[Rfam]
This 48-nucleotide sequence from Haematobacter massiliensis belongs to the Rfam family "Xanthine riboswitch aptamer (NMT1 RNA)". Rfam links the family to the GO term purine nucleobase binding. It scores 37 bits against the family's covariance model. A reference for the family is Yu and Breaker (2020), "A bacterial riboswitch class senses xanthine and uric acid to regulate genes associated with purine oxidation", RNA. Taxonomically the source falls in Haematobacter (Bacteria, Pseudomonadota, Alphaproteobacteria, Paracoccaceae).
RNA sequence: GCUGCGAGUAGAAGCAGUCGGGGCACAGUCCUGGACAUUGCUCGACGG
Numbered sequence: 001g002c003u004g005c006g007a008g009u010a011g012a013a014g015c016a017g018u019c020g021g022g023g024c025a026c027a028g029u030c031c032u033g034g035a036c037a038u039u040g041c042u043c044g045a046c047g048g
Stems, first nucleotide, its partner, number of pairs: 005044006015033001018035002021031004
The family's consensus secondary structure is taken from published work.